[Rfam]
RNA sequence: GAUGGGGCGCUCAGGCUAUAAGGUAGAGAAAUUGAUGUUGUCUACACUAUUCAGACUUCAGUUUCAUUGCCUUUCAAUUUGUUUGCCCCCCU
Numbered sequence: 001g002a003u004g005g006g007g008c009g010c011u012c013a014g015g016c017u018a019u020a021a022g023g024u025a026g027a028g029a030a031a032u033u034g035a036u037g038u039u040g041u042c043u044a045c046a047c048u049a050u051u052c053a054g055a056c057u058u059c060a061g062u063u064u065c066a067u068u069g070c071c072u073u074u075c076a077a078u079u080u081g082u083u084u085g086c087c088c089c090c091c092u
Stems, first nucleotide, its partner, number of pairs: 004089006012081004020073007028065008037056001038054003